RNA: mir-9242 microRNA precursor family
RNA sequence: GGCCACCCUCUGUGGGGUGAUUGAUGGAGGGGCUCCAUGAUCGAUCACCUCACAGAGGGGGGCC
Numbered sequence: 001g002g003c004c005a006c007c008c009u010c011u012g013u014g015g016g017g018u019g020a021u022u023g024a025u026g027g028a029g030g031g032g033c034u035c036c037a038u039g040a041u042c043g044a045u046c047a048c049c050u051c052a053c054a055g056a057g058g059g060g061g062g063c064c
Stems, first nucleotide, its partner, number of pairs: 001064004006059020027038001029036002